[Rfam]
The family of this 90-nucleotide sequence from Corticimicrobacter populi is "SAH (S-adenosyl-L-homocysteine) riboswitch aptamer".
The family has 52 seed sequences and 1,354 matches in Rfam 15.1.

RNA sequence: GAGUCCGAGGAGCGUUGCGACGGGUACAGCCCGCCAGGCUCGGAUUCCAACCGGCAGCAAAACUGCCGGCAGCAACGACGCUCACCUCAU
Numbered sequence: 001g002a003g004u005c006c007g008a009g010g011a012g013c014g015u016u017g018c019g020a021c022g023g024g025u026a027c028a029g030c031c032c033g034c035c036a037g038g039c040u041c042g043g044a045u046u047c048c049a050a051c052c053g054g055c056a057g058c059a060a061a062a063c064u065g066c067c068g069g070c071a072g073c074a075a076c077g078a079c080g081c082u083c084a085c086c087u088c089a090u
Base pairs, nucleotide, nucleotide: 002046003045004044005043006042007041008040021033022032023031024030025029